[Rfam]
The family of this 62-nucleotide RNA from Prolemur simus is "Gag/pol translational readthrough site". It scores 72 bits against the family's covariance model. Pairs were carried over by alignment from the consensus structure, which is taken from published work. The family has 8 seed sequences and 3,368 matches in Rfam 15.1. By type it is a cis-regulatory element. The literature on the family includes a 1990 paper in Virus Genes by ten Dam et al., "RNA pseudoknots: translational frameshifting and readthrough on viral RNAs". The organism belongs to Prolemur, within Eukaryota.
RNA sequence: UAGGGAAGACGGGGUUCGGUGCCCCUCCCCGAGCCCAGGGUAACUUUGCAAGUAGAGGGGAA
Numbered sequence: 001u002a003g004g005g006a007a008g009a010c011g012g013g014g015u016u017c018g019g020u021g022c023c024c025c026u027c028c029c030c031g032a033g034c035c036c037a038g039g040g041u042a043a044c045u046u047u048g049c050a051a052g053u054a055g056a057g058g059g060g061a062a
Base pairs, nucleotide, nucleotide: 008041010039012036013035014034015033016031018029019028022060023059024058025057026056027055